[Rfam]
RNA sequence: UAGGAGAUUCUGUAAAGCUCAGGAGGGAUAGCGCCAUGACUAUGUCAUAUGGGAUUCAUUCACAUAUUUGAUAUAUCAUAUCAAUCUAGUCAAUUGCGCUAUCCAUCCUGAGCUUUAUUGCAUCUUCUU
Numbered sequence: 001u002a003g004g005a006g007a008u009u010c011u012g013u014a015a016a017g018c019u020c021a022g023g024a025g026g027g028a029u030a031g032c033g034c035c036a037u038g039a040c041u042a043u044g045u046c047a048u049a050u051g052g053g054a055u056u057c058a059u060u061c062a063c064a065u066a067u068u069u070g071a072u073a074u075a076u077c078a079u080a081u082c083a084a085u086c087u088a089g090u091c092a093a094u095u096g097c098g099c100u101a102u103c104c105a106u107c108c109u110g111a112g113c114u115u116u117a118u119u120g121c122a123u124c125u126u127c128u129u
Stems, first nucleotide, its partner, number of pairs: 010120001016114009026104009
Record summary:
Rfam assigns this 129-nucleotide RNA from Thalictrum thalictroides to the family "MIR390 microRNA precursor family". Lineage of the source: Eukaryota > Streptophytina > Ranunculales > Thalictroideae > Thalictrum. The base pairs follow the family's consensus structure, which was predicted with WAR. A search with the family's covariance model found it, with a score of 96 bits.